Rfam assigns this 75-nucleotide sequence from Clostridiales bacterium 1_7_47FAA to the family "COG2827 RNA".
The source organism's lineage runs through Bacteria, Bacillati, Bacillota, Clostridia and Eubacteriales.
It is annotated as a small RNA.
Pairs were carried over by alignment from the consensus structure, which is taken from published work.
The sequence is in the family's curated seed alignment.
[Rfam]
RNA sequence: GCUGGUGCUUUAUAAUAGAUCACAGGGCGACCUGGGCGGUGAUGACGCACUGUAAGCGUUGUUGCCGUUUACAUA
Numbered sequence: 001g002c003u004g005g006u007g008c009u010u011u012a013u014a015a016u017a018g019a020u021c022a023c024a025g026g027g028c029g030a031c032c033u034g035g036g037c038g039g040u041g042a043u044g045a046c047g048c049a050c051u052g053u054a055a056g057c058g059u060u061g062u063u064g065c066c067g068u069u070u071a072c073a074u075a
Base pairs, nucleotide, nucleotide: 023034024033025032026031035069036068037067038066039065040064041063042062043061044060045059046058047057048056